[Rfam]
RNA sequence: GGGGAUCUUCGGAGCCCGUUCACCCGCAGGCCGCAAGGUCUGUGCAAGCAAACGGAAGACAGAGA
Numbered sequence: 001g002g003g004g005a006u007c008u009u010c011g012g013a014g015c016c017c018g019u020u021c022a023c024c025c026g027c028a029g030g031c032c033g034c035a036a037g038g039u040c041u042g043u044g045c046a047a048g049c050a051a052a053c054g055g056a057a058g059a060c061a062g063a064g065a
Base pairs, nucleotide, nucleotide: 001019002017003016004015006014008012025044026043027042028041029040030039031038

This 65-nucleotide RNA sequence belongs to the Rfam family "L2-Alphaproteobacteria ribosomal protein leader". By type it is a cis-regulatory leader. The literature on the family includes a 2020 paper in BMC Microbiol by Eckert and Weinberg, "Discovery of 20 novel ribosomal leader candidates in bacteria and archaea".